Shown here is a 52-nucleotide sequence from Parahoeflea halophila, a member of the family "serC leader".
Rfam's curators write: This family is a putative regulatory RNA structure that is found upstream of the serC-serA operon in some alpha-proteobacteria.
Gene Ontology term of the family: regulation of gene expression.
The literature on the family includes a 2005 paper in Genome Biol by Corbino et al., "Evidence for a second class of S-adenosylmethionine riboswitches and other regulatory RNA motifs in alpha-proteobacteria".
The organism belongs to Parahoeflea, within Bacteria.
The base pairs follow the family's consensus structure.
[Rfam]
RNA sequence: CAGUGGGCCACCCCUCCCCAACGAGGGGCCACUAUCUGGAAGGGUAGCAUUA
Numbered sequence: 001c002a003g004u005g006g007g008c009c010a011c012c013c014c015u016c017c018c019c020a021a022c023g024a025g026g027g028g029c030c031a032c033u034a035u036c037u038g039g040a041a042g043g044g045u046a047g048c049a050u051u052a
Stems, first nucleotide, its partner, number of pairs: 011028006032047006